[Rfam]
RNA sequence: AGCGUUUCGUGUUCACUGCAGACCUUGAUUUCACAUCACACCAUUAAGGCACGCAGUGAAUGCUAAAGUG
Numbered sequence: 001a002g003c004g005u006u007u008c009g010u011g012u013u014c015a016c017u018g019c020a021g022a023c024c025u026u027g028a029u030u031u032c033a034c035a036u037c038a039c040a041c042c043a044u045u046a047a048g049g050c051a052c053g054c055a056g057u058g059a060a061u062g063c064u065a066a067a068g069u070g
Base pairs, nucleotide, nucleotide: 005067006066009063010062011061012060013059014058015057016056018054019053023049024048025047026046027045028044029043
Overview
This 70-nucleotide RNA from Pavo cristatus belongs to the Rfam family "mir-124 microRNA precursor family". Pairs were carried over by alignment from the consensus structure, which was predicted with PFOLD. The literature on the family includes a 2003 paper in Genes Dev by Lim et al., "The microRNAs of Caenorhabditis elegans".